Overview:
This 187-nucleotide sequence from Roseateles sp. DAIF2 belongs to the Rfam family "Manganese Mn2+ riboswitch aptamer (yybP-ykoY)". Rfam links the family to the GO term manganese ion binding. On this family, see Price et al., Mol Cell 2015: "Mn(2+)-sensing mechanisms of yybP-ykoY orphan riboswitches". The source organism's lineage runs through Bacteria, Pseudomonadati, Pseudomonadota, Burkholderiales and Roseateles.

[Rfam]
RNA sequence: CGCCCCGUCAUUGGGGAGUAGCCGCGGCAGCCCUCAUCCCGCUGCUGGCCCGCGUCAACACACUUGGUUCGUGAGAACCAUGGCGCGGGCAGUGCCCGCACCUGGCAAGACCUUUGACCAUGCUGCCCGGCACUUCGUUCUCACACGGCCGGGGCGGCAUGGUCAAUUGCGCGCUUGCUGGCCGUGU
Numbered sequence: 001c002g003c004c005c006c007g008u009c010a011u012u013g014g015g016g017a018g019u020a021g022c023c024g025c026g027g028c029a030g031c032c033c034u035c036a037u038c039c040c041g042c043u044g045c046u047g048g049c050c051c052g053c054g055u056c057a058a059c060a061c062a063c064u065u066g067g068u069u070c071g072u073g074a075g076a077a078c079c080a081u082g083g084c085g086c087g088g089g090c091a092g093u094g095c096c097c098g099c100a101c102c103u104g105g106c107a108a109g110a111c112c113u114u115u116g117a118c119c120a121u122g123c124u125g126c127c128c129g130g131c132a133c134u135u136c137g138u139u140c141u142c143a144c145a146c147g148g149c150c151g152g153g154g155c156g157g158c159a160u161g162g163u164c165a166a167u168u169g170c171g172c173g174c175u176u177g178c179u180g181g182c183c184g185u186g187u
Stems, first nucleotide, its partner, number of pairs: 026046005048090010065080005096186001